[Rfam]
RNA sequence: CUCGACAAUCUUGUUUCUUUCGGGAUUCGAAUUGUUCUUCUUCUGCUCGUGAGAAAUUCGGAGUAAUCUUCACUAUUACCGUCAACUGCAUGUGGGAUUGCCCGCUUCUGGGAAUGUCUACCUCUGUGGAACUGACUGGUCUGCCCGUAAGGGUCUGGCGUGACUUCACAUCUGCAAUUGGCAUCAGAAAAGCAGGGCCUUUCACUUCGUCUCUGGCGUUGGAGUCUGGUUCCUAUGGGAGAGUCAUUGCGAAGAUUGUGUGGAUAACACUUAAGUGCGAUACGCAGCGUGCUGCCUUCUUUGAAGGCUAGUACAAUUCGAUUCUGAUUACUCUGAUGAG
Numbered sequence: 001c002u003c004g005a006c007a008a009u010c011u012u013g014u015u016u017c018u019u020u021c022g023g024g025a026u027u028c029g030a031a032u033u034g035u036u037c038u039u040c041u042u043c044u045g046c047u048c049g050u051g052a053g054a055a056a057u058u059c060g061g062a063g064u065a066a067u068c069u070u071c072a073c074u075a076u077u078a079c080c081g082u083c084a085a086c087u088g089c090a091u092g093u094g095g096g097a098u099u100g101c102c103c104g105c106u107u108c109u110g111g112g113a114a115u116g117u118c119u120a121c122c123u124c125u126g127u128g129g130a131a132c133u134g135a136c137u138g139g140u141c142u143g144c145c146c147g148u149a150a151g152g153g154u155c156u157g158g159c160g161u162g163a164c165u166u167c168a169c170a171u172c173u174g175c176a177a178u179u180g181g182c183a184u185c186a187g188a189a190a191a192g193c194a195g196g197g198c199c200u201u202u203c204a205c206u207u208c209g210u211c212u213c214u215g216g217c218g219u220u221g222g223a224g225u226c227u228g229g230u231u232c233c234u235a236u237g238g239g240a241g242a243g244u245c246a247u248u249g250c251g252a253a254g255a256u257u258g259u260g261u262g263g264a265u266a267a268c269a270c271u272u273a274a275g276u277g278c279g280a281u282a283c284g285c286a287g288c289g290u291g292c293u294g295c296c297u298u299c300u301u302u303g304a305a306g307g308c309u310a311g312u313a314c315a316a317u318u319c320g321a322u323u324c325u326g327a328u329u330a331c332u333c334u335g336a337u338g339a340g
Stems, first nucleotide, its partner, number of pairs: 001340002006335002011287004016282001021049004034040001059326005068254004143154004157172002160169002174250004180245003195234003289314006
RNA: Nuclear RNase P